[Rfam]
RNA sequence: UGCAAGUAUUUUACAAUUAAGAAGCAGUUGUCUCUUGUACAGAUCGUGUAUUAAGCU
Numbered sequence: 001u002g003c004a005a006g007u008a009u010u011u012u013a014c015a016a017u018u019a020a021g022a023a024g025c026a027g028u029u030g031u032c033u034c035u036u037g038u039a040c041a042g043a044u045c046g047u048g049u050a051u052u053a054a055g056c057u
Base pairs, nucleotide, nucleotide: 018037019036020035021034022033024031025030
A member of the RNA family "Plastid-rps18 3UTR RNA" from Coffea arabica, 57 nucleotides long. The family has 238 seed sequences and 1,462 matches in Rfam 15.1. Plastid rps18 is a non-coding RNA (ncRNA) present in plastids. The organism belongs to Coffea, within Eukaryota. By type it is a cis-regulatory element. For this family Rfam cites "Retrograde signaling in plants: A critical review focusing on the GUN pathway and beyond" (Richter et al., Plant Commun, 2023).